[Rfam]
Nucleotides: 175
Base pairs, nucleotide, nucleotide: 009166010165011164012163013162015160016159017158021156026151027150028149029148030147031146032145033144034143035142037140038139039138040137041136042135043134044133045132046131047130049127050126051125053123055122056121057120058119059118060117061116
Number, partner (000 for none) and nucleotide at each position: 001000g002000c003000a004000a005000g006000g007000a008000a009166g010165a011164g012163g013162a014000a015160g016159a017158a018000a019000g020000a021156g022000u023000c024000u025000g026151u027150c028149u029148a030147a031146g032145a033144g034143c035142a036000g037140u038139g039138g040137g041136a042135a043134u044133g045132g046131g047130a048000a049127c050126a051125u052000g053123g054000a055122g056121g057120a058119a059118a060117g061116c062000a063000u064000g065000a066000g067000c068000u069000a070000u071000c072000a073000g074000c075000u076000g077000g078000u079000u080000g081000c082000a083000c084000c085000u086000c087000c088000a089000a090000a091000u092000u093000u094000g095000g096000a097000a098000g099000u100000g101000g102000g103000c104000a105000u106000u107000u108000g109000u110000c111000u112000c113000a114000u115000u116061g117060c118059u119058u120057u121056c122055c123053u124000g125051g126050u127049g128000c129000c130047u131046c132045c133044c134043a135042u136041u137040c138039c139038u140037a141000u142035u143034g144033u145032u146031c147030u148029u149028a150027g151026g152000u153000u154000c155000u156021c157000c158017u159016u160015c161000c162013u163012c164011u165010u166009c167000c168000u169000u170000u171000g172000g173000c174000u175000c

Shown here is a 175-nucleotide RNA from Miscanthus lutarioriparius, a member of the family "MIR2118 microRNA precursor family".